[Rfam]
RNA sequence: CUCCACAGCUACUGGCCUGAAACUGUUAAGAACUGUAGCAGUUGCAGUAUUCCCUCUGUGGAAAAUAAAUUGUUACACAGAGUUAGGCUCUUUCUCAGAUGUUCUGAGAAGGACUUCCUCUGUAACAAACAUUG
Numbered sequence: 001c002u003c004c005a006c007a008g009c010u011a012c013u014g015g016c017c018u019g020a021a022a023c024u025g026u027u028a029a030g031a032a033c034u035g036u037a038g039c040a041g042u043u044g045c046a047g048u049a050u051u052c053c054c055u056c057u058g059u060g061g062a063a064a065a066u067a068a069a070u071u072g073u074u075a076c077a078c079a080g081a082g083u084u085a086g087g088c089u090c091u092u093u094c095u096c097a098g099a100u101g102u103u104c105u106g107a108g109a110a111g112g113a114c115u116u117c118c119u120c121u122g123u124a125a126c127a128a129a130c131a132u133u134g
Stems, first nucleotide, its partner, number of pairs: 003061004017047003021043005075123003079119001089113008
About this RNA:
Shown here is a 134-nucleotide RNA from Phainopepla nitens, a member of the family "Small nucleolar RNA SNORA41". Lineage of the source: Eukaryota > Deuterostomia > Gnathostomata > Bombycillidae > Phainopepla. About the family: ACA41 is a member of the H/ACA class of snoRNA that guide the sites of modification of uridines to pseudouridines. The match comes from Rfam's covariance-model search (96 bits).